[Rfam]
RNA: Mycobacterium sRNA Ms_IGR-8
RNA sequence: GGGCGUUUCUGCGCCGAACGUGACGCCACUGCGAGGUCUCCGCGAAUUCCUCGCAGUGGCGUC
Number, nucleotide and partner (000 for none) at each position: 001g000002g000003g000004c000005g000006u000007u000008u000009c000010u000011g000012c000013g000014c000015c000016g000017a000018a000019c000020g000021u000022g063023a062024c061025g060026c059027c058028a057029c056030u055031g054032c053033g052034a051035g049036g000037u000038c000039u045040c000041c000042g000043c000044g000045a039046a000047u000048u000049c035050c000051u034052c033053g032054c031055a030056g029057u028058g027059g026060c025061g024062u023063c022